[Rfam]
RNA sequence: CAGGCGAACACCGAAAAGCCUAAAACAGAGUAGGUG
Number, nucleotide and partner (000 for none) at each position: 001c000002a021003g020004g019005c018006g000007a000008a000009c000010a035011c034012c033013g000014a000015a000016a000017a000018g005019c004020c003021u002022a000023a000024a000025a000026c000027a000028g000029a000030g000031u000032a000033g012034g011035u010036g000

The record is a 36-nucleotide RNA sequence from Microscilla marina, which matches "DUF805b RNA" in Rfam. The organism belongs to Microscilla marina, within Bacteria. The sequence is in the family's curated seed alignment.